[Rfam]
RNA: sRNA-Xcc1
RNA sequence: GGCCGGGAGGGCGACGGCCAUACAACACCCGCAAGGGGAAAACCGUCCGCCGACUGUUGCUCGGUUUUCAGCCUCCCGGCCGCCUUGCG
Numbered sequence: 001g002g003c004c005g006g007g008a009g010g011g012c013g014a015c016g017g018c019c020a021u022a023c024a025a026c027a028c029c030c031g032c033a034a035g036g037g038g039a040a041a042a043c044c045g046u047c048c049g050c051c052g053a054c055u056g057u058u059g060c061u062c063g064g065u066u067u068u069c070a071g072c073c074u075c076c077c078g079g080c081c082g083c084c085u086u087g088c089g
Stems, first nucleotide, its partner, number of pairs: 001081009013047004028037003049065005